This 91-nucleotide RNA sequence from Marinoscillum sp. 108 belongs to the Rfam family "SAM riboswitch aptamer (S box leader)". Lineage of the source: Bacteria > Bacteroidota > Cytophagia > Reichenbachiellaceae > Marinoscillum. Pairs were carried over by alignment from the consensus structure, which is taken from published work.
[Rfam]
RNA sequence: GAUUUAUAAAGAAGCGCUGAGAGACAGGCUCUAAGAAGCGCUAGCAACCCCCACCCUAAACGGGAAGGUGCUAAUUCCUGAUAUAUAAAUU
Numbered sequence: 001g002a003u004u005u006a007u008a009a010a011g012a013a014g015c016g017c018u019g020a021g022a023g024a025c026a027g028g029c030u031c032u033a034a035g036a037a038g039c040g041c042u043a044g045c046a047a048c049c050c051c052c053a054c055c056c057u058a059a060a061c062g063g064g065a066a067g068g069u070g071c072u073a074a075u076u077c078c079u080g081a082u083a084u085a086u087a088a089a090u091u
Stems, first nucleotide, its partner, number of pairs: 001091008013042005021031003025080004043072004048068002050064003076083001